[Rfam]
RNA: Bacterial large signal recognition particle RNA
Organism: Enterocloster bolteae
RNA sequence: CCACGCAGCCGGGGAGAUAGCGGUGCCCUGUACCUGCAAUCCGCUCCAGCAGGGGUGAUACCUUGCCUCGGGCUGUUUGCUGCGAAGCUGCCUUGUGUAAGUGGCGUUGACGUCUGGGUCUUACGCAACGGGAAUCCGUGAACCGUGUCAGGGCAGGAAUGCAGCAGCACUAAGCGGAACCUCCCGUGUGCCGUGAGGCAGCCUGGAUUGAGUUAACUGCAUGAGUAACGUUCGUGGCAGCAGCACAAAGCAAGGUGCGUGG
Numbered sequence: 001c002c003a004c005g006c007a008g009c010c011g012g013g014g015a016g017a018u019a020g021c022g023g024u025g026c027c028c029u030g031u032a033c034c035u036g037c038a039a040u041c042c043g044c045u046c047c048a049g050c051a052g053g054g055g056u057g058a059u060a061c062c063u064u065g066c067c068u069c070g071g072g073c074u075g076u077u078u079g080c081u082g083c084g085a086a087g088c089u090g091c092c093u094u095g096u097g098u099a100a101g102u103g104g105c106g107u108u109g110a111c112g113u114c115u116g117g118g119u120c121u122u123a124c125g126c127a128a129c130g131g132g133a134a135u136c137c138g139u140g141a142a143c144c145g146u147g148u149c150a151g152g153g154c155a156g157g158a159a160u161g162c163a164g165c166a167g168c169a170c171u172a173a174g175c176g177g178a179a180c181c182u183c184c185c186g187u188g189u190g191c192c193g194u195g196a197g198g199c200a201g202c203c204u205g206g207a208u209u210g211a212g213u214u215a216a217c218u219g220c221a222u223g224a225g226u227a228a229c230g231u232u233c234g235u236g237g238c239a240g241c242a243g244c245a246c247a248a249a250g251c252a253a254g255g256u257g258c259g260u261g262g
Stems, first nucleotide, its partner, number of pairs: 001262007008056003011029004016024001018022001033053005061255003067250002070246001072244004077240010089227002093224006101217002103214003112208008120197006126188002129186005135178005145170004153162003
Dot-bracket structure: ((((((((((((((.(.(...).).))))...(((((...........))))))))....(((...((.(.((((.((((((((((..((..((((((..(((((......((((((((((((((((.(((((.(((((.....((((....(((....)))....))))...)))))...)))))))...))))))...))))))))...))).)).)))))).))...)))))))))))))).)..))..))))))))))